[Rfam]
RNA: small nucleolar RNA snR35
RNA sequence: UCUGUGCGGCGAGCGCCCCUGAAAACUUGUAGUGUUACUCGCUAACUCUUUUUAAUGAGUCGGUUUUGAGUGUCAACCCAGGUUGAGAAUGAGUAAGAAUGUCUUAGUGCCUAUUUAUCAUCUUGUCCCCGACUAGGGUGGUAGAGGGCUGGUGAUUCCUACAUCU
Numbered sequence: 001u002c003u004g005u006g007c008g009g010c011g012a013g014c015g016c017c018c019c020u021g022a023a024a025a026c027u028u029g030u031a032g033u034g035u036u037a038c039u040c041g042c043u044a045a046c047u048c049u050u051u052u053u054a055a056u057g058a059g060u061c062g063g064u065u066u067u068g069a070g071u072g073u074c075a076a077c078c079c080a081g082g083u084u085g086a087g088a089a090u091g092a093g094u095a096a097g098a099a100u101g102u103c104u105u106a107g108u109g110c111c112u113a114u115u116u117a118u119c120a121u122c123u124u125g126u127c128c129c130c131g132a133c134u135a136g137g138g139u140g141g142u143a144g145a146g147g148g149c150u151g152g153u154g155a156u157u158c159c160u161a162c163a164u165c166u
Stems, first nucleotide, its partner, number of pairs: 024084006037071005045060004095160001097158004114145009